Nucleotides: 156
Stems, first nucleotide, its partner, number of pairs: 011141001013139002019029001031136006041075001076121003084098004101115004
Number, partner (000 for none) and nucleotide at each position: 001000c002000g003000g004000a005000a006000c007000c008000a009000c010000c011141c012000a013139c014138c015000g016000a017000a018000g019029c020000a021000c022000g023000u024000g025000g026000c027000a028000g029019g030000a031136g032135c033134g034133g035132g036131g037000g038000a039000c040000c041075c042000a043000g044000g045000u046000a047000g048000u049000c050000c051000g052000c053000c054000g055000a056000c057000c058000g059000g060000g061000a062000g063000a064000c065000c066000g067000g068000c069000c070000g071000g072000c073000u074000c075041g076121g077120g078119g079000u080000g081000a082000a083000g084098u085097c086096g087095c088000g089000c090000c091000g092000u093000g094000c095087g096086c097085g098084a099000c100000c101115g102114g103113g104112c105000a106000g107000c108000u109000c110000c111000c112104g113103c114102c115101c116000g117000a118000a119078c120077c121076c122000g123000a124000c125000a126000g127000c128000u129000c130000a131036c132035c133034u134033c135032g136031c137000a138014g139013g140000c141011g142000c143000c144000g145000g146000a147000g148000a149000g150000g151000a152000a153000a154000c155000g156000c
About this RNA:
The record is a 156-nucleotide RNA sequence from Streptomyces qinzhouensis, which matches "c-di-AMP riboswitch aptamer (ydaO/yuaA leader)" in Rfam. The family has 106 seed sequences and 7,607 matches in Rfam 15.1. The pairing is the family consensus, mapped onto this sequence. For this family Rfam cites "New RNA motifs suggest an expanded scope for riboswitches in bacterial genetic control" (Barrick et al., Proc Natl Acad Sci U S A, 2004).